[Rfam]
RNA sequence: GGGGACCUUCGGGGCCCUGUAACAUCCGGGUAGUCUGUCAGCGGCGGUACUUCCAACCGCCCGGCAAAUACCCAAUACAUAGCCGCCUCACGUGGACCCCGGCCCGACUUUUCCGGACCAAACGAGGGCGGCGCUUGCUAAACGGAAGACAGAAA
Number, nucleotide and partner (000 for none) at each position: 001g018002g017003g016004g015005a000006c014007c013008u012009u000010c000011g000012g008013g007014g006015c004016c003017c002018u001019g000020u000021a000022a000023c000024a000025u000026c000027c133028g132029g000030g000031u128032a000033g000034u000035c000036u000037g000038u000039c000040a000041g000042c000043g104044g103045c000046g000047g000048u000049a000050c000051u000052u000053c000054c000055a000056a000057c000058c000059g000060c000061c000062c000063g000064g000065c000066a000067a000068a000069u000070a000071c000072c000073c000074a000075a000076u000077a000078c000079a000080u000081a000082g000083c000084c000085g000086c000087c000088u000089c000090a000091c000092g000093u000094g000095g000096a000097c000098c000099c000100c000101g000102g000103c044104c043105c000106g000107a000108c000109u000110u000111u000112u000113c000114c000115g000116g000117a000118c000119c000120a000121a000122a000123c000124g000125a000126g000127g000128g031129c000130g000131g000132c028133g027134c000135u000136u000137g000138c000139u000140a000141a000142a000143c000144g000145g000146a000147a000148g000149a000150c000151a000152g000153a000154a000155a000